[Rfam]
RNA sequence: CAGCAUGUUUCCAACUGCUGUGGCUGUUUAUGGUCAUGAGAUCUCCAACUGCAUGCUAGAGAAACCUGAAGAGACUUUGACAGCUCAGGUCAACACAGCACUUGUGGCUGCCACUUGCCUUUCCUAUAAAG
Numbered sequence: 001c002a003g004c005a006u007g008u009u010u011c012c013a014a015c016u017g018c019u020g021u022g023g024c025u026g027u028u029u030a031u032g033g034u035c036a037u038g039a040g041a042u043c044u045c046c047a048a049c050u051g052c053a054u055g056c057u058a059g060a061g062a063a064a065c066c067u068g069a070a071g072a073g074a075c076u077u078u079g080a081c082a083g084c085u086c087a088g089g090u091c092a093a094c095a096c097a098g099c100a101c102u103u104g105u106g107g108c109u110g111c112c113a114c115u116u117g118c119c120u121u122u123c124c125u126a127u128a129a130a131g
Stems, first nucleotide, its partner, number of pairs: 012038001017034006068124001070122004083111002086104004
Dot-bracket structure: ...........(....((((((......))))))...).............................(.((((.........((.((((...........)))).....)).......)))).).......
Source information:
The record is a 131-nucleotide RNA from Jaculus jaculus, which matches "Small nucleolar RNA SNORA44" in Rfam. From the family's description: ACA44 is a member of the H/ACA class of snoRNA that guide the sites of modification of uridines to pseudouridines. By type it is an H/ACA-box small nucleolar RNA. Rfam links the family to the GO terms RNA processing and nucleolus. Clan: SNORA44 clan.